[Rfam]
RNA sequence: GCACCUGAAUCUUUGCUAUUUCUUGAUGUGCAGUGCAGGUCUGGGGACAGCUGGUGCUACAGCACUGCAGUGGAAGUCCAGAUGGGCUGCUUUUCCAUGGGUUUGGAACUCAUCUCUACACCUCUGCAGCAUUU
Numbered sequence: 001g002c003a004c005c006u007g008a009a010u011c012u013u014u015g016c017u018a019u020u021u022c023u024u025g026a027u028g029u030g031c032a033g034u035g036c037a038g039g040u041c042u043g044g045g046g047a048c049a050g051c052u053g054g055u056g057c058u059a060c061a062g063c064a065c066u067g068c069a070g071u072g073g074a075a076g077u078c079c080a081g082a083u084g085g086g087c088u089g090c091u092u093u094u095c096c097a098u099g100g101g102u103u104u105g106g107a108a109c110u111c112a113u114c115u116c117u118a119c120a121c122c123u124c125u126g127c128a129g130c131a132u133u134u
Base pairs, nucleotide, nucleotide: 001057002056003055004054005053013047014046016044017043018042021039022038067127068126069125070124072122080115081114082113083112084111085110086109094106095105